[Rfam]
Nucleotides: 109
Base pairs, nucleotide, nucleotide: 007096008095009094010093011060012059013058016054017031018030019029020028021027038053039052040051041050042049065090066089067088068087071084072083073082074081
Number, partner (000 for none) and nucleotide at each position: 001000g002000c003000g004000c005000u006000u007096g008095c009094u010093c011060c012059g013058g014000g015000g016054u017031g018030c019029a020028c021027g022000u023000a024000u025000g026000g027021c028020g029019u030018g031017c032000u033000g034000a035000g036000a037000c038053a039052g040051u041050g042049g043000a044000c045000c046000c047000g048000a049042c050041c051040a052039c053038u054016g055000g056000a057000a058013c059012c060011g061000c062000g063000a064000a065090c066089u067088u068087g069000a070000u071084c072083u073082g074081g075000u076000u077000a078000g079000u080000a081074c082073c083072a084071g085000c086000g087068u088067a089066a090065g091000a092000a093010g094009a095008g096007c097000u098000g099000c100000a101000g102000u103000u104000g105000g106000a107000u108000c109000u